[Rfam]
RNA sequence: GGCCUCCCUCUGUGGGGCAAUUGAUCGUGGGGUCCCCAGAUCAAUCACCCCACAGAGGGAGGCC
Numbered sequence: 001g002g003c004c005u006c007c008c009u010c011u012g013u014g015g016g017g018c019a020a021u022u023g024a025u026c027g028u029g030g031g032g033u034c035c036c037c038a039g040a041u042c043a044a045u046c047a048c049c050c051c052a053c054a055g056a057g058g059g060a061g062g063c064c
Stems, first nucleotide, its partner, number of pairs: 001064017020045007029036002